RNA sequence: GCAUUUAAAGGUCUGUGGUUGAAAGUCCAUGCCAGUCGCAGGCAAAGGGACCCACGUAAGAUAGUAAAAAAUACAGCUAUUGAGCAUGGUGCGGCUUAGAAGUAAGACCUGCCGACAAAAAGUCGAGAGAGUGAGUAGUGAGGCAACCCCGUAGCGAAAUCUCCAGCAGGCGAGUGUGGGGGCAAAGACCAGGUCAGCUUUAAUGU
Dot-bracket structure: (((((..(((..((((((((........((([.(((((((.]........((......((...................)).....[)))))))))...........(((((((((.....))))...(((......((..((...)).....)).....)))..)))))....)))......]..)))))...)))))).)))))
Numbered sequence: 001g002c003a004u005u006u007a008a009a010g011g012u013c014u015g016u017g018g019u020u021g022a023a024a025g026u027c028c029a030u031g032c033c034a035g036u037c038g039c040a041g042g043c044a045a046a047g048g049g050a051c052c053c054a055c056g057u058a059a060g061a062u063a064g065u066a067a068a069a070a071a072u073a074c075a076g077c078u079a080u081u082g083a084g085c086a087u088g089g090u091g092c093g094g095c096u097u098a099g100a101a102g103u104a105a106g107a108c109c110u111g112c113c114g115a116c117a118a119a120a121a122g123u124c125g126a127g128a129g130a131g132u133g134a135g136u137a138g139u140g141a142g143g144c145a146a147c148c149c150c151g152u153a154g155c156g157a158a159a160u161c162u163c164c165a166g167c168a169g170g171c172g173a174g175u176g177u178g179g180g181g182g183c184a185a186a187g188a189c190c191a192g193g194u195c196a197g198c199u200u201u202a203a204u205g206u
Stems, first nucleotide, its partner, number of pairs: 001206005008200003013197003016191005029177003032042001034096007051089002059081002087184001108170005113125004129163003138155002142148002